[Rfam]
RNA sequence: UAGACGCGCGUGGGAGAGUCCGUUCCUUCGUGUGCGGCGCCGAAGGGGCAAUUCCUCCCCGGAACCUCUCAGGCACCCGGACCACGUGAUCGAG
Numbered sequence: 001u002a003g004a005c006g007c008g009c010g011u012g013g014g015a016g017a018g019u020c021c022g023u024u025c026c027u028u029c030g031u032g033u034g035c036g037g038c039g040c041c042g043a044a045g046g047g048g049c050a051a052u053u054c055c056u057c058c059c060c061g062g063a064a065c066c067u068c069u070c071a072g073g074c075a076c077c078c079g080g081a082c083c084a085c086g087u088g089a090u091c092g093a094g
Stems, first nucleotide, its partner, number of pairs: 007088007020037004039074003042070002046068003052062002
Glycine riboswitch aptamer: a 94-nucleotide sequence from Aeromicrobium sp. PE09-221. The base pairs follow the family's consensus structure. Rfam links the family to the GO term glycine biosynthetic process.